The family of this 162-nucleotide sequence from Selenomonas sp. F0473 is "glmS glucosamine-6-phosphate activated ribozyme aptamer". Pairs were carried over by alignment from the consensus structure, which is taken from published work. NCBI's taxonomy places the organism under Bacteria, Bacillati, Negativicutes, Selenomonadales, Selenomonas. It is annotated as a riboswitch. Rfam's curators write: This entry contains a glucosamine-6-phosphate activated ribozyme that is found in the mRNA for GlmS. GlmS is an enzyme that uses fructose-6-phosphate and glutamine to generate glucosamine-6-phosphate. The ribozyme catalyses self cleavage of the glmS mRNA that is thought to regulate GlmS activity. A search with the family's covariance model found it, with a score of 94 bits.

RNA sequence: ACAAGGUUCUUAGCGCUGGCUCUGAAUUUAGUACGGAUAUAUUCAGAGGACGAGGAGAAGGUUGUCGAGCCGUCAGCGGAUGCCUUCCGGCACGCUCUGUCGAGAGUCUGCGGUCAAAGCAUGGGGGCGACCCCGUGGACAAAGCCGUGGAUCGAGCGAAAU
Numbered sequence: 001a002c003a004a005g006g007u008u009c010u011u012a013g014c015g016c017u018g019g020c021u022c023u024g025a026a027u028u029u030a031g032u033a034c035g036g037a038u039a040u041a042u043u044c045a046g047a048g049g050a051c052g053a054g055g056a057g058a059a060g061g062u063u064g065u066c067g068a069g070c071c072g073u074c075a076g077c078g079g080a081u082g083c084c085u086u087c088c089g090g091c092a093c094g095c096u097c098u099g100u101c102g103a104g105a106g107u108c109u110g111c112g113g114u115c116a117a118a119g120c121a122u123g124g125g126g127g128c129g130a131c132c133c134c135g136u137g138g139a140c141a142a143a144g145c146c147g148u149g150g151a152u153c154g155a156g157c158g159a160a161a162u
Base pairs, nucleotide, nucleotide: 020048021047022046023045024044025043026042027041029039057087058086059085060084061083065076067074068073088102089101090100091099092098106152107151108150109149110148111147112146120137121136122135123134124133125132126131